RNA sequence: GAUUUAUACAGAAGAGGCGAGAGACAGGCUCUAUGACCCUCUGGCAACCAUCCAAGUGGAAAGGUGCCAAUUCCUGCCGACUGGAAUAUCUCCUUUCGGAAAUAUAAAUU
Numbered sequence: 001g002a003u004u005u006a007u008a009c010a011g012a013a014g015a016g017g018c019g020a021g022a023g024a025c026a027g028g029c030u031c032u033a034u035g036a037c038c039c040u041c042u043g044g045c046a047a048c049c050a051u052c053c054a055a056g057u058g059g060a061a062a063g064g065u066g067c068c069a070a071u072u073c074c075u076g077c078c079g080a081c082u083g084g085a086a087u088a089u090c091u092c093c094u095u096u097c098g099g100a101a102a103u104a105u106a107a108a109u110u
Base pairs, nucleotide, nucleotide: 001110002109003108004107005106006105007104008103013042014041015040016039017038021031022030023029025076026075027074028073043068044067045066046065048064049063051059052058072102077099078098079097080096
The record is a 110-nucleotide RNA sequence from Mongoliitalea lutea, which matches "SAM riboswitch aptamer (S box leader)" in Rfam. NCBI's taxonomy places the organism under Bacteria, Pseudomonadati, Bacteroidota, Cytophagales, Mongoliitalea. A search with the family's covariance model found it, with a score of 80 bits. On this family, see Montange et al., J Mol Biol 2010: "Discrimination between closely related cellular metabolites by the SAM-I riboswitch".